[Rfam]
RNA sequence: ACUCGGGCACGAUCCUCACCCAGCGUGUGGAACCGACCCGUAGUCCAACCCUGAGGGA
Numbered sequence: 001a002c003u004c005g006g007g008c009a010c011g012a013u014c015c016u017c018a019c020c021c022a023g024c025g026u027g028u029g030g031a032a033c034c035g036a037c038c039c040g041u042a043g044u045c046c047a048a049c050c051c052u053g054a055g056g057g058a
Stems, first nucleotide, its partner, number of pairs: 001044003004040004013031003017027003
Notes
Rfam assigns this 58-nucleotide sequence from Corynebacterium aurimucosum to the family "L31-Corynebacteriaceae ribosomal protein leader". A reference for the family is Eckert and Weinberg (2020), "Discovery of 20 novel ribosomal leader candidates in bacteria and archaea", BMC Microbiol. The organism belongs to Corynebacterium, within Bacteria. The family's RNA type in Rfam is cis-regulatory leader.